[Rfam]
RNA sequence: CUAUAGAGAAUGGGGUGCUCCUGCAAAAAGCAGUUGCUGAGAUUACACCCACAGAACCUGUUCAGAUAAUGCUGACGUAGGGAUUCUAAAAAUGUAAUAA
Numbered sequence: 001c002u003a004u005a006g007a008g009a010a011u012g013g014g015g016u017g018c019u020c021c022u023g024c025a026a027a028a029a030g031c032a033g034u035u036g037c038u039g040a041g042a043u044u045a046c047a048c049c050c051a052c053a054g055a056a057c058c059u060g061u062u063c064a065g066a067u068a069a070u071g072c073u074g075a076c077g078u079a080g081g082g083a084u085u086c087u088a089a090a091a092a093u094g095u096a097a098u099a100a
Base pairs, nucleotide, nucleotide: 007087008086009085010084011051012050013049014048016045017037018036021033022032023031024030057081058080059079060078062075063074064073065072
Rfam assigns this 100-nucleotide RNA from Balneicella halophila to the family "TPP riboswitch aptamer (THI element)".
Taxonomically the source falls in Balneicella (Bacteria, Pseudomonadati, Bacteroidota, Balneicellaceae).
Vitamin B(1) in its active form thiamin pyrophosphate (TPP) is an essential coenzyme that is synthesised by coupling of pyrimidine and thiazole moieties in bacteria.
A search with the family's covariance model found it, with a score of 63 bits.